[Rfam]
RNA sequence: CUCCUAGUCAAAGGGGAGUAGCGUUCAGGCAUAUGCCUGAAAACAAAGUCGUCAAUUCAUGGACUCAGUCCAUCGGCUUUGUUGGCACUUCAUGAGUGUCU
Numbered sequence: 001c002u003c004c005u006a007g008u009c010a011a012a013g014g015g016g017a018g019u020a021g022c023g024u025u026c027a028g029g030c031a032u033a034u035g036c037c038u039g040a041a042a043a044c045a046a047a048g049u050c051g052u053c054a055a056u057u058c059a060u061g062g063a064c065u066c067a068g069u070c071c072a073u074c075g076g077c078u079u080u081g082u083u084g085g086c087a088c089u090u091c092a093u094g095a096g097u098g099u100c101u
Stems, first nucleotide, its partner, number of pairs: 025040003042083010059073005
Dot-bracket structure: ........................(((..........))).((((((((((.......(((((.....)))))))))))))))..................

A member of the RNA family "Manganese Mn2+ riboswitch aptamer (yybP-ykoY)" from Thermolongibacillus altinsuensis, 101 nucleotides long. Rfam links the family to the GO term manganese ion binding. Taxonomically the source falls in Thermolongibacillus (Bacteria, Bacillota, Bacilli, Caryophanales). Pairs were carried over by alignment from the consensus structure. Rfam's curators write: This RNA was originally discovered in E. coli during a large scale screen and was named SraF. The family was later found to exist upstream of related families of protein genes in many bacteria, including the the yybP and ykoK genes in B. subtilis. The specific functions of these proteins are unknown, but this structured RNA element may be involved in their genetic regulation as a riboswitch. It scores 54 bits against the family's covariance model.